[Rfam]
Overview: The record is a 298-nucleotide sequence from Magallana gigas, which matches "Metazoan signal recognition particle RNA" in Rfam. Its Rfam clan is "SRP clan". The literature on the family includes a 2002 paper in Curr Opin Struct Biol by Wild et al., "Towards the structure of the mammalian signal recognition particle". Taxonomically the source falls in Magallana (Eukaryota, Bilateria, Spiralia, Autobranchia). About the family: The signal recognition particle (SRP) is a universally conserved ribonucleoprotein. It is involved in the co-translational targeting of proteins to membranes. The eukaryotic SRP consists of a 300-nucleotide 7S RNA and six proteins: SRPs 72, 68, 54, 19, 14, and 9. Archaeal SRP consists of a 7S RNA and homologues of the eukaryotic SRP19 and SRP54 proteins. Eukaryotic and archaeal 7S RNAs have very similar secondary structures, as represented by this family. Eight helical elements fold into the Alu and S domains, separated by a long linker region. The Alu domain is thought to mediate the peptide chain elongation retardation function of the SRP. The universally conserved helix which interacts with the SRP54 M domain mediates signal sequence recognition. In eukaryotes and archaea, the SRP19-helix 6 complex is thought to be involved in SRP assembly and stabilises helix 8 for SRP54 binding. The Signal Recognition Particle Database (SRPDB) provides compilations of SRP components, with phylogenetic data and structural illustrations. Many sequences below the threshold for this family are clearly closely related, but are most likely to be SRP RNA derived pseudogenes. The human genome in particular is known to contain a large amount of SRP RNA related sequence, including Alu repeats. While the threshold of this family is set high so as to minimise the number of hits to such regions, it is likely that some remain. It is annotated as a non-coding RNA gene. The family has 91 seed sequences and 383,523 matches in Rfam 15.1.
RNA sequence: GCUGGGAGUUGUGGCGUGCUCCUGUAAUCCAGCUACCUGGAGGCUUGAGUUGGUGGACAGUUUGAGGCCGGGGGCCCUGUCCAUCGGUGUUCUAUGUCGAUCGGGCGUCCGCACUAAGCUCAGCAUCAAUAUGGUGGGCUCAGGGGAACCUAGGCUCACCAGGUUGUCUAAGGAGGGACGUACCGGUCCAGGGUGGAAACACAGCAGACAAAAGUUCCCGUGUUGAGCAGUAGUGGGAUCGCGCCCGUGAAUAGGCGCCGGUGGGUAGCCCGUCCAAUAUAGCGGGACCCAAUUCUUU
Numbered sequence: 001g002c003u004g005g006g007a008g009u010u011g012u013g014g015c016g017u018g019c020u021c022c023u024g025u026a027a028u029c030c031a032g033c034u035a036c037c038u039g040g041a042g043g044c045u046u047g048a049g050u051u052g053g054u055g056g057a058c059a060g061u062u063u064g065a066g067g068c069c070g071g072g073g074g075c076c077c078u079g080u081c082c083a084u085c086g087g088u089g090u091u092c093u094a095u096g097u098c099g100a101u102c103g104g105g106c107g108u109c110c111g112c113a114c115u116a117a118g119c120u121c122a123g124c125a126u127c128a129a130u131a132u133g134g135u136g137g138g139c140u141c142a143g144g145g146g147a148a149c150c151u152a153g154g155c156u157c158a159c160c161a162g163g164u165u166g167u168c169u170a171a172g173g174a175g176g177g178a179c180g181u182a183c184c185g186g187u188c189c190a191g192g193g194u195g196g197a198a199a200c201a202c203a204g205c206a207g208a209c210a211a212a213a214g215u216u217c218c219c220g221u222g223u224u225g226a227g228c229a230g231u232a233g234u235g236g237g238a239u240c241g242c243g244c245c246c247g248u249g250a251a252u253a254g255g256c257g258c259c260g261g262u263g264g265g266u267a268g269c270c271c272g273u274c275c276a277a278u279a280u281a282g283c284g285g286g287a288c289c290c291a292a293u294u295c296u297u298u
Stems, first nucleotide, its partner, number of pairs: 001044003004023006028041003047295007058285001060283003066275002069272004077268013091255005097249001102247007109237002112235005118228009127166004132161009142151003167173002175218005186209003193202003